[Rfam]
RNA: MIR1120/MIR1122 microRNA precursor family
RNA sequence: CUACUCCCUCUGUAAACUAAUAUAAGAGCAUUUAGAUCACUAAAGUGAUCUAAAUGCUCUUAUAUUAGUUUACAGAGGGAGUAG
Numbered sequence: 001c002u003a004c005u006c007c008c009u010c011u012g013u014a015a016a017c018u019a020a021u022a023u024a025a026g027a028g029c030a031u032u033u034a035g036a037u038c039a040c041u042a043a044a045g046u047g048a049u050c051u052a053a054a055u056g057c058u059c060u061u062a063u064a065u066u067a068g069u070u071u072a073c074a075g076a077g078g079g080a081g082u083a084g
Stems, first nucleotide, its partner, number of pairs: 003082003007078005013072005019066022